[Rfam]
RNA sequence: AAAAACAUAUUAAUAUUCACUUGUAUAAAUUCUGCAAUAAGGGUGGAAUGUUUCUACCGAGCUACCGUAAAUUGCUCGUGGCUAUAAGUGUCUACUAAGCAUUU
Numbered sequence: 001a002a003a004a005a006c007a008u009a010u011u012a013a014u015a016u017u018c019a020c021u022u023g024u025a026u027a028a029a030u031u032c033u034g035c036a037a038u039a040a041g042g043g044u045g046g047a048a049u050g051u052u053u054c055u056a057c058c059g060a061g062c063u064a065c066c067g068u069a070a071a072u073u074g075c076u077c078g079u080g081g082c083u084a085u086a087a088g089u090g091u092c093u094a095c096u097a098a099g100c101a102u103u104u
Stems, first nucleotide, its partner, number of pairs: 018090008029049007058080001059077004064072001

The record is a 104-nucleotide RNA sequence from Clostridium neonatale, which matches "Purine riboswitch aptamer" in Rfam. The source organism's lineage runs through Bacteria, Bacillati, Bacillota, Clostridiaceae and Clostridium. Rfam links the family to the GO term purine nucleobase biosynthetic process. It scores 75 bits against the family's covariance model.